Group II catalytic intron D1-D4-3: a 193-nucleotide sequence from Flammeovirga sp. SJP92. Its family is annotated with Group II intron splicing in the Gene Ontology. The pairing is the family consensus, mapped onto this sequence.
RNA sequence: UUUUCCGUGAGGAAUGCACUGAAGUAAGUCAAACGGCAAAAGUUGGUACUGAUGAACAAAAACGACAUAUGAGGCAUAGGCGGUAGGAUGAGUAAGCACAUCAUUACGAAGUCCGAACGUGGGAAUCACGCUGUAAUUCGCAACACAGUGCUGUUUAUGUAGAUGUCGCAGGGAUCAAUGGAAAGAAGGUGUC
Number, nucleotide and partner (000 for none) at each position: 001u016002u000003u014004u013005c012006c011007g000008u000009g000010a000011g006012g005013a004014a003015u000016g001017c000018a000019c000020u000021g000022a000023a000024g000025u000026a000027a000028g193029u000030c191031a190032a000033a000034c000035g000036g000037c185038a000039a000040a000041a000042g179043u178044u177045g176046g175047u173048a000049c171050u170051g169052a000053u000054g000055a000056a000057c000058a000059a000060a000061a000062a000063c168064g167065a166066c165067a164068u163069a000070u000071g000072a000073g000074g160075c159076a158077u000078a156079g155080g154081c153082g152083g151084u150085a000086g114087g113088a112089u111090g000091a000092g107093u106094a105095a104096g000097c000098a000099c000100a000101u000102c000103a000104u095105u094106a093107c092108g000109a000110a000111g089112u088113c087114c086115g000116a000117a000118c000119g000120u000121g000122g000123g000124a000125a000126u000127c000128a000129c000130g000131c000132u000133g000134u000135a000136a000137u000138u000139c000140g000141c000142a000143a000144c000145a000146c000147a000148g000149u000150g084151c083152u082153g081154u080155u079156u078157a000158u076159g075160u074161a000162g000163a068164u067165g066166u065167c064168g063169c051170a050171g049172g000173g047174a000175u046176c045177a044178a043179u042180g000181g000182a000183a000184a000185g037186a000187a000188g000189g000190u031191g030192u000193c028

The match comes from Rfam's covariance-model search (110 bits).